[Rfam]
RNA: Pseudomonas sRNA P26
Organism: Alteromonas sp. KUL49
RNA sequence: CUAAUCAGAUUACCUGCCUUAAACGGCAAGGCUGGUGGUUUUUUAGACCACCAGCCU
Numbered sequence: 001c002u003a004a005u006c007a008g009a010u011u012a013c014c015u016g017c018c019u020u021a022a023a024c025g026g027c028a029a030g031g032c033u034g035g036u037g038g039u040u041u042u043u044u045a046g047a048c049c050a051c052c053a054g055c056c057u
Stems, first nucleotide, its partner, number of pairs: 016027003030056010